TPP riboswitch aptamer (THI element): a 112-nucleotide sequence from Porphyromonas catoniae.
RNA sequence: CUAAGGACAAAGGGGUGCUGAUCCUCCGCCCUGCGGAGUGUAUUUAGCUGAGAUGAUACCCUCAAGACCUGAUCCAGUCAAUACUGGCGUAGGAAUUGUCAAUCAUUACACA
Numbered sequence: 001c002u003a004a005g006g007a008c009a010a011a012g013g014g015g016u017g018c019u020g021a022u023c024c025u026c027c028g029c030c031c032u033g034c035g036g037a038g039u040g041u042a043u044u045u046a047g048c049u050g051a052g053a054u055g056a057u058a059c060c061c062u063c064a065a066g067a068c069c070u071g072a073u074c075c076a077g078u079c080a081a082u083a084c085u086g087g088c089g090u091a092g093g094a095a096u097u098g099u100c101a102a103u104c105a106u107u108a109c110a111c112a
Base pairs, nucleotide, nucleotide: 006100007099008098009097010096011062012061013060014059016056017048018047019046020045021044068093069092070091071090074087075086076085077084
A search with the family's covariance model found it, with a score of 66 bits.